[Rfam]
RNA sequence: GAUUAUCUUCAGGGCGGGGUGUAAGUCCCCACCGGCGGUUAUAGCCCGCGAGCGAAAUUUUUCGUAGGAUUCGGUGAAAUUCCGAGGCCGACAGUAUAGUCUGGAUGGAAGAAGGUAAUA
Numbered sequence: 001g002a003u004u005a006u007c008u009u010c011a012g013g014g015c016g017g018g019g020u021g022u023a024a025g026u027c028c029c030c031a032c033c034g035g036c037g038g039u040u041a042u043a044g045c046c047c048g049c050g051a052g053c054g055a056a057a058u059u060u061u062u063c064g065u066a067g068g069a070u071u072c073g074g075u076g077a078a079a080u081u082c083c084g085a086g087g088c089c090g091a092c093a094g095u096a097u098a099g100u101c102u103g104g105a106u107g108g109a110a111g112a113a114g115g116u117a118a119u120a
Stems, first nucleotide, its partner, number of pairs: 003118008017029003031100002033090002035049004044088002070086005092103003
RNA: FMN riboswitch aptamer (RFN element)